The family of this 117-nucleotide RNA sequence from Nocardioides donggukensis is "Glycine riboswitch aptamer". Gene Ontology term of the family: glycine biosynthetic process. The pairing is the family consensus, mapped onto this sequence. Taxonomically the source falls in Nocardioides (Bacteria, Bacillati, Actinomycetes, Nocardioidaceae).
[Rfam]
RNA sequence: CAAUCCCGCACGGGAGAGUCUCCACCGGGGCCGGUGAGAUCUGCCGGCCCGGGCCGGAGCGCCGAAGGGGCAACCCCUCCCCGGAACCUCUCAGGCGCCAAGGACCGUGCGGAGCUG
Numbered sequence: 001c002a003a004u005c006c007c008g009c010a011c012g013g014g015a016g017a018g019u020c021u022c023c024a025c026c027g028g029g030g031c032c033g034g035u036g037a038g039a040u041c042u043g044c045c046g047g048c049c050c051g052g053g054c055c056g057g058a059g060c061g062c063c064g065a066a067g068g069g070g071c072a073a074c075c076c077c078u079c080c081c082c083g084g085a086a087c088c089u090c091u092c093a094g095g096c097g098c099c100a101a102g103g104a105c106c107g108u109g110c111g112g113a114g115c116u117g
Base pairs, nucleotide, nucleotide: 006112007111008110009109010108011107012106013105020059021058022057023056061096062095063094064092065091068090069089070088074084075083